[Rfam]
RNA sequence: CUGCAUACCAGUAGACCUUAUCUGGUUCUUCUGAUAGCCUGAUGAGGGGGACGGUGCAUGCUACAGAAAACUGGGGUUGCUGUAGGCCAUGGGCAGCCUUGAUGUGGCUGAUUGAGCUGCAAUGCUCCAACAUAC
Numbered sequence: 001c002u003g004c005a006u007a008c009c010a011g012u013a014g015a016c017c018u019u020a021u022c023u024g025g026u027u028c029u030u031c032u033g034a035u036a037g038c039c040u041g042a043u044g045a046g047g048g049g050g051a052c053g054g055u056g057c058a059u060g061c062u063a064c065a066g067a068a069a070a071c072u073g074g075g076g077u078u079g080c081u082g083u084a085g086g087c088c089a090u091g092g093g094c095a096g097c098c099u100u101g102a103u104g105u106g107g108c109u110g111a112u113u114g115a116g117c118u119g120c121a122a123u124g125c126u127c128c129a130a131c132a133u134a135c
Stems, first nucleotide, its partner, number of pairs: 003061004008056001016047007024039001073128004078124001081121003094110004
RNA: Small nucleolar RNA SNORA58
Organism: Opisthocomus hoazin